[Rfam]
RNA sequence: GGGAAGUGAUGAGUGGUCAUAGCUCGCAUACAAAAAUGCUAGAUGGGGUGUCCGCCCAAAGCCUGUUACGACAAUUGGGCACCUCCAGUCUUAAACCAUCUGAUCCC
Numbered sequence: 001g002g003g004a005a006g007u008g009a010u011g012a013g014u015g016g017u018c019a020u021a022g023c024u025c026g027c028a029u030a031c032a033a034a035a036a037u038g039c040u041a042g043a044u045g046g047g048g049u050g051u052c053c054g055c056c057c058a059a060a061g062c063c064u065g066u067u068a069c070g071a072c073a074a075u076u077g078g079g080c081a082c083c084u085c086c087a088g089u090c091u092u093a094a095a096c097c098a099u100c101u102g103a104u105c106c107c
Stems, first nucleotide, its partner, number of pairs: 001107004014098004023042002026039002045085003049081004063077001065075002
RNA: Small nucleolar RNA Z279/snoR105/snoR108
Organism: Mikania micrantha